The record is a 114-nucleotide RNA from Thermomonospora echinospora, which matches "ALIL pseudoknot" in Rfam. For this family Rfam cites "Apical loop-internal loop RNA pseudoknots: a new type of stimulator of -1 translational frameshifting in bacteria" (Mazauric et al., J Biol Chem, 2008). It scores 65 bits against the family's covariance model. The family's RNA type in Rfam is cis-regulatory element. The source organism's lineage runs through Bacteria, Actinomycetota, Actinomycetes, Streptosporangiales and Thermomonospora. Rfam links the family to the GO term positive regulation of translational frameshifting.

RNA sequence: CGCGUAUUUUGCCCGGGAACUCGACCCGAGACUGCAGCGCUGGUCGAGUUCAUCGAUGCUCACCGGGACCGGUUCGGUGUGGAGCCGAUCUGCGGUGUGCUGGAUGUUGCGCCG
Number, nucleotide and partner (000 for none) at each position: 001c000002g000003c000004g000005u000006a000007u000008u000009u000010u000011g000012c000013c000014c000015g000016g026017g025018a000019a000020c000021u000022c000023g000024a000025c017026c016027c000028g000029a000030g000031a000032c000033u000034g000035c000036a000037g000038c000039g000040c000041u000042g000043g000044u000045c000046g000047a000048g000049u000050u000051c000052a000053u000054c000055g000056a000057u000058g000059c000060u000061c000062a000063c000064c000065g000066g000067g000068a000069c000070c000071g000072g000073u000074u000075c114076g113077g112078u111079g110080u000081g000082g000083a000084g000085c000086c109087g108088a000089u106090c000091u104092g000093c102094g101095g100096u000097g000098u000099g000100c095101u094102g093103g000104a091105u000106g089107u000108u087109g086110c079111g078112c077113c076114g075